[Rfam]
RNA sequence: GUCGGAUAUGGGGACAUGCACCCCGUGACCAUCGGGGGGAAGAUCGUGGGCUCUUUGUGCGCAAUAGCCGGCGUGCUGACUAUUGCCCUGCCCGUUCCUGUCAUUGUCUCAAAU
Numbered sequence: 001g002u003c004g005g006a007u008a009u010g011g012g013g014a015c016a017u018g019c020a021c022c023c024c025g026u027g028a029c030c031a032u033c034g035g036g037g038g039g040a041a042g043a044u045c046g047u048g049g050g051c052u053c054u055u056u057g058u059g060c061g062c063a064a065u066a067g068c069c070g071g072c073g074u075g076c077u078g079a080c081u082a083u084u085g086c087c088c089u090g091c092c093c094g095u096u097c098c099u100g101u102c103a104u105u106g107u108c109u110c111a112a113a114u
Base pairs, nucleotide, nucleotide: 001114002113005110008107009106010105011104013102014101015100016099018097020095021094037077038076040074050062051061

Potassium channel RNA editing signal: a 114-nucleotide RNA sequence from Menidia menidia.
Pairs were carried over by alignment from the consensus structure, which is taken from published work.
The source organism's lineage runs through Eukaryota, Vertebrata, Clupeocephala, Percomorphaceae and Menidia.